[Rfam]
RNA sequence: CCGCGGUGGUGGCUGGUUAGACGUAGCCGCGGUGGUGGCUGG
Numbered sequence: 001c002c003g004c005g006g007u008g009g010u011g012g013c014u015g016g017u018u019a020g021a022c023g024u025a026g027c028c029g030c031g032g033u034g035g036u037g038g039c040u041g042g
Stems, first nucleotide, its partner, number of pairs: 001032006